Small nucleolar RNA Z159/U59: a 79-nucleotide RNA from Tripterygium wilfordii.
A reference for the family is Chen et al. (2003), "The high diversity of snoRNAs in plants: identification and comparative study of 120 snoRNA genes from Oryza sativa", Nucleic Acids Res.
Nucleotides: 079
Base pairs, nucleotide, nucleotide: 003077004076005075006074
Number, partner (000 for none) and nucleotide at each position: 001000a002000u003077c004076u005075c006074u007000u008000a009000u010000g011000a012000u013000g014000a015000a016000a017000u018000u019000a020000a021000c022000u023000u024000u025000u026000g027000u028000u029000c030000u031000c032000c033000u034000g035000a036000g037000a038000u039000u040000u041000a042000a043000a044000g045000u046000g047000c048000u049000g050000a051000a052000a053000a054000a055000a056000u057000u058000u059000g060000g061000a062000g063000a064000c065000c066000u067000g068000a069000g070000c071000u072000g073000a074006a075005g076004a077003g078000u079000u

Background:
Lineage of the source: Eukaryota > Streptophyta > Embryophyta > Celastraceae > Tripterygium. The family's RNA type in Rfam is C/D-box small nucleolar RNA.